The record is a 129-nucleotide RNA sequence from Phocoena sinus, which matches "Small nucleolar RNA SNORA56" in Rfam. It is annotated as an H/ACA-box small nucleolar RNA. Taxonomically the source falls in Phocoena (Eukaryota, Vertebrata, Tetrapoda, Laurasiatheria). Its Rfam clan is "SNORA56 clan". Gene Ontology terms of the family: nucleolus and RNA processing. From the family's description: ACA56 is a member of the H/ACA class of snoRNA that guide the sites of modification of uridines to pseudouridines.
[Rfam]
RNA sequence: CGACAGACAGUUAACCCUUUCUAGUCUGGCUCGUGGCACUCCAGCAGGAGUCAGUCUGCGACAGCAAGUGGUGAGUUGUUCUGUCCAGCAUCAGGAUGUUGAUGGUGGCCUUAGGCUUGCCGGAUCUGC
Numbered sequence: 001c002g003a004c005a006g007a008c009a010g011u012u013a014a015c016c017c018u019u020u021c022u023a024g025u026c027u028g029g030c031u032c033g034u035g036g037c038a039c040u041c042c043a044g045c046a047g048g049a050g051u052c053a054g055u056c057u058g059c060g061a062c063a064g065c066a067a068g069u070g071g072u073g074a075g076u077u078g079u080u081c082u083g084u085c086c087a088g089c090a091u092c093a094g095g096a097u098g099u100u101g102a103u104g105g106u107g108g109c110c111u112u113a114g115g116c117u118u119g120c121c122g123g124a125u126c127u128g129c
Stems, first nucleotide, its partner, number of pairs: 004058005021044002024041001025038001027036001069122007077115001079113001083109003089104006
Dot-bracket structure: ...(((((............((.((.(........).)..).)).........)))))..........(((((((.(.(...(((...((((((....))))))..)))...).)))))))).......